Small nucleolar RNA SNORA13: a 133-nucleotide RNA from Otolemur garnettii.
Lineage of the source: Eukaryota > Sarcopterygii > Dipnotetrapodomorpha > Galagidae > Otolemur.
ACA13 is a member of the H/ACA class of snoRNA that guide the sites of modification of uridines to pseudouridines.
The family has 50 seed sequences and 1,034 matches in Rfam 15.1.

Nucleotides: 133
Base pairs, nucleotide, nucleotide: 002056003055004054005053006052007051009048010047012045013044014043015042016040017039018038019037020036021035022034023033068126069125070124071123072121073120074119075118076117077116082115083114084113085112086111087110088108089107092103093102
Number, partner (000 for none) and nucleotide at each position: 001000a002056g003055c004054c005053u006052u007051u008000g009048u010047g011000u012045u013044g014043c015042c016040c017039a018038u019037u020036c021035a022034c023033u024000u025000u026000g027000g028000a029000a030000a031000c032000u033023a034022g035021u036020g037019g038018a039017u040016g041000u042015g043014g044013u045012g046000u047010c048009a049000a050000a051007a052006a053005a054004g055003g056002c057000g058000u059000a060000c061000a062000u063000u064000a065000a066000a067000u068126g069125c070124u071123u072121u073120g074119c075118g076117g077116c078000c079000u080000u081000u082115u083114c084113c085112u086111g087110c088108c089107c090000u091000u092103a093102a094000a095000u096000c097000u098000g099000g100000u101000a102093u103092u104000u105000u106000u107089g108088g109000u110087g111086u112085a113084g114083g115082a116077g117076c118075u119074g120073c121072a122000u123071a124070a125069g126068u127000a128000a129000c130000a131000g132000u133000u